Description
Shown here is a 131-nucleotide RNA from Cognatundibacterium jejuense, a member of the family "Glycine riboswitch aptamer".
[Rfam]
RNA sequence: UCCCCACACUCUGGAGAGUGGUAGCGGCACAUGAGCCGGACUACCCACCGAAGGUGCGCACGAGAUGGCAACUUAGCUAUACGCUGAAGAUGCUCUCGUAAUCUCUCAGGUACCAGGACAGAGGGGUAUGC
Numbered sequence: 001u002c003c004c005c006a007c008a009c010u011c012u013g014g015a016g017a018g019u020g021g022u023a024g025c026g027g028c029a030c031a032u033g034a035g036c037c038g039g040a041c042u043a044c045c046c047a048c049c050g051a052a053g054g055u056g057c058g059c060a061c062g063a064g065a066u067g068g069c070a071a072c073u074u075a076g077c078u079a080u081a082c083g084c085u086g087a088a089g090a091u092g093c094u095c096u097c098g099u100a101a102u103c104u105c106u107c108a109g110g111u112a113c114c115a116g117g118a119c120a121g122a123g124g125g126g127u128a129u130g131c
Base pairs, nucleotide, nucleotide: 007125009123010122011121012120013119020045021044022043023042047111048110049109050107051106054105056103
The base pairs follow the family's consensus structure. Lineage of the source: Bacteria > Pseudomonadati > Burkholderiales > Oxalobacteraceae > Cognatundibacterium.